The record is a 145-nucleotide sequence from Rhizobium etli, which matches "Alphaproteobacterial sRNA ar7" in Rfam. Rfam's curators put it in the seed alignment. Lineage of the source: Bacteria > Pseudomonadati > Hyphomicrobiales > Rhizobiaceae > Rhizobium etli bv. mimosae. The literature on the family includes a 2012 paper in RNA Biol by del Val et al., "A survey of sRNA families in alpha-proteobacteria".
RNA sequence: CACCGGCGCUUGAUCGCGCCGCGGGUCUGAUUACCGGCUUGUCCCCCGCCGCAUCAGGCUUGGACAAAGGCCUUAUCCCCCUCUCCGGGCCUUUGUCCCCAUUUUAAAGUCGCCAUGGCCAACCUCCAGGCCAUGGCGACUUUUG
Numbered sequence: 001c002a003c004c005g006g007c008g009c010u011u012g013a014u015c016g017c018g019c020c021g022c023g024g025g026u027c028u029g030a031u032u033a034c035c036g037g038c039u040u041g042u043c044c045c046c047c048g049c050c051g052c053a054u055c056a057g058g059c060u061u062g063g064a065c066a067a068a069g070g071c072c073u074u075a076u077c078c079c080c081c082u083c084u085c086c087g088g089g090c091c092u093u094u095g096u097c098c099c100c101a102u103u104u105u106a107a108a109g110u111c112g113c114c115a116u117g118g119c120c121a122a123c124c125u126c127c128a129g130g131c132c133a134u135g136g137c138g139a140c141u142u143u144u145g
Stems, first nucleotide, its partner, number of pairs: 026058006036050003062098011108141001110139011